This 87-nucleotide RNA from Solirubrobacter pauli belongs to the Rfam family "tRNA".
[Rfam]
RNA sequence: GGAGAGGUGCCGGAGCGGCUGAACGGGCACGACUGGAAAUCGUGUGAUGGGGAAACUCAUCCGGGGGUUCGAAUCCCCCUCUCUCCG
Numbered sequence: 001g002g003a004g005a006g007g008u009g010c011c012g013g014a015g016c017g018g019c020u021g022a023a024c025g026g027g028c029a030c031g032a033c034u035g036g037a038a039a040u041c042g043u044g045u046g047a048u049g050g051g052g053a054a055a056c057u058c059a060u061c062c063g064g065g066g067g068u069u070c071g072a073a074u075c076c077c078c079c080u081c082u083c084u085c086c087g
Stems, first nucleotide, its partner, number of pairs: 001086007010026003028044005063079005